[Rfam]
RNA: MIR6152 microRNA precursor family
Organism: Nicotiana sylvestris
RNA sequence: AUUGUAUUAGACUAUAUUCAACUGUAUUCAUGGCGUGAAACAGGGGAUUACACUGUUUUAAAUGAAAAGUGAAUCAAUUAACAUAAUACCCCAGA
Numbered sequence: 001a002u003u004g005u006a007u008u009a010g011a012c013u014a015u016a017u018u019c020a021a022c023u024g025u026a027u028u029c030a031u032g033g034c035g036u037g038a039a040a041c042a043g044g045g046g047a048u049u050a051c052a053c054u055g056u057u058u059u060a061a062a063u064g065a066a067a068a069g070u071g072a073a074u075c076a077a078u079u080a081a082c083a084u085a086a087u088a089c090c091c092c093a094g095a
Base pairs, nucleotide, nucleotide: 002094003093004092011087013085014084015083017081018080020079021078023076024075026074027073028072029071030070031069034064035063036062037059038058039057040056041055042054043053